[Rfam]
RNA sequence: GUGGGAUACGGGGAUAUGCAUCCGGUGACCGUGGGCGGCAAGGUGGUGGGCUCGCUGUGCGCCAUCGCCGGGGUGCUGACCAUCGCGCUGCCCGUGCCCGUCAUCGUGUCCAAC
Number, nucleotide and partner (000 for none) at each position: 001g114002u113003g000004g111005g110006a000007u108008a107009c106010g105011g104012g000013g102014a101015u100016a000017u000018g097019c096020a095021u094022c000023c000024g000025g000026u000027g000028a000029c000030c000031g000032u000033g000034g000035g000036c000037g077038g076039c075040a074041a000042g000043g000044u000045g000046g000047u000048g000049g063050g062051c061052u000053c000054g000055c000056u000057g000058u000059g000060c000061g051062c050063c049064a000065u000066c000067g000068c000069c000070g000071g000072g000073g000074u040075g039076c038077u037078g000079a000080c000081c000082a000083u000084c000085g000086c000087g000088c000089u000090g000091c000092c000093c000094g021095u020096g019097c018098c000099c000100g015101u014102c013103a000104u011105c010106g009107u008108g007109u000110c005111c004112a000113a002114c001

Description: Potassium channel RNA editing signal: a 114-nucleotide sequence from Merluccius polli. Rfam classes the family as a cis-regulatory element. Pairs were carried over by alignment from the consensus structure, which is taken from published work.